Source information
This 380-nucleotide RNA sequence from Erysiphe pulchra belongs to the Rfam family "Nuclear RNase P". A search with the family's covariance model found it, with a score of 52 bits. Taxonomically the source falls in Erysiphe (Eukaryota, Fungi, Leotiomycetes, Erysiphaceae). Rfam's curators write: Ribonuclease P (RNase P) is a ubiquitous endoribonuclease, found in archaea, bacteria and eukarya as well as chloroplasts and mitochondria. The family's consensus secondary structure is taken from published work.
RNA sequence: UCCUUUUCAAUGCUGCGUUUCUAUGCUACAAACAGAAAAGUUGCUCUCUACAACUUCUUCAUGAAAAACAUCGCAUAUGAGAAAUUCGGAGUAAUCUUCAAAUUGUCCAAGUCUCAAGUUCUAAUUUGAGUUUUUGGCCUGCCCGUGAGGGUUCAGCGUGAUCUCACGCUUGUAAUUGGCAUCAGAAAAGCAGGGCAAGUUUUACGCUAUGCUAGUUUCUCUAAAAAGAUUCUUUGCUGGAUAAUUUCUUGUUUCUAUGGGAGAGUCAUUACGAAGAUUGUGUGUGCUUUUGCAUGACACUUUAGUGCAAUACGCAGCGUGUUUUCUAUCGUCUUGGUACGAAGAGAAACACAAUUCGAUUCCGAUUACUUUGAUUAGGA
Numbered sequence: 001u002c003c004u005u006u007u008c009a010a011u012g013c014u015g016c017g018u019u020u021c022u023a024u025g026c027u028a029c030a031a032a033c034a035g036a037a038a039a040g041u042u043g044c045u046c047u048c049u050a051c052a053a054c055u056u057c058u059u060c061a062u063g064a065a066a067a068a069c070a071u072c073g074c075a076u077a078u079g080a081g082a083a084a085u086u087c088g089g090a091g092u093a094a095u096c097u098u099c100a101a102a103u104u105g106u107c108c109a110a111g112u113c114u115c116a117a118g119u120u121c122u123a124a125u126u127u128g129a130g131u132u133u134u135u136g137g138c139c140u141g142c143c144c145g146u147g148a149g150g151g152u153u154c155a156g157c158g159u160g161a162u163c164u165c166a167c168g169c170u171u172g173u174a175a176u177u178g179g180c181a182u183c184a185g186a187a188a189a190g191c192a193g194g195g196c197a198a199g200u201u202u203u204a205c206g207c208u209a210u211g212c213u214a215g216u217u218u219c220u221c222u223a224a225a226a227a228g229a230u231u232c233u234u235u236g237c238u239g240g241a242u243a244a245u246u247u248c249u250u251g252u253u254u255c256u257a258u259g260g261g262a263g264a265g266u267c268a269u270u271a272c273g274a275a276g277a278u279u280g281u282g283u284g285u286g287c288u289u290u291u292g293c294a295u296g297a298c299a300c301u302u303u304a305g306u307g308c309a310a311u312a313c314g315c316a317g318c319g320u321g322u323u324u325u326c327u328a329u330c331g332u333c334u335u336g337g338u339a340c341g342a343a344g345a346g347a348a349a350c351a352c353a354a355u356u357c358g359a360u361u362c363c364g365a366u367u368a369c370u371u372u373g374a375u376u377a378g379g380a
Stems, first nucleotide, its partner, number of pairs: 001380004007374003012318007022077004035056002040051001087364005096276004141152004155170005172272004178267003193256003319352007